[Rfam]
RNA sequence: GCUGAUGUGGUGGAAUUGGUAGACACGCCGGACUUAAAAUCCUGUGCCCAUCUCGGGCGUGCGGGUUCAAGUCCCGCCAUCAGUA
Number, nucleotide and partner (000 for none) at each position: 001g084002c083003u082004g081005a080006u079007g078008u000009g000010g026011u025012g024013g000014a000015a000016u000017u000018g000019g000020u000021a000022g000023a000024c012025a011026c010027g000028c044029c000030g042031g041032a040033c000034u000035u000036a000037a000038a000039a000040u032041c031042c030043u000044g028045u000046g000047c000048c000049c000050a000051u000052c000053u000054c000055g000056g000057g000058c000059g000060u000061g077062c076063g075064g074065g073066u000067u000068c000069a000070a000071g000072u000073c065074c064075c063076g062077c061078c007079a006080u005081c004082a003083g002084u001085a000
Shown here is an 85-nucleotide RNA sequence from Aequorivita viscosa, a member of the family "tRNA". It is annotated as a transfer RNA. The organism belongs to Aequorivita, within Bacteria. The base pairs follow the family's consensus structure, which is taken from published work.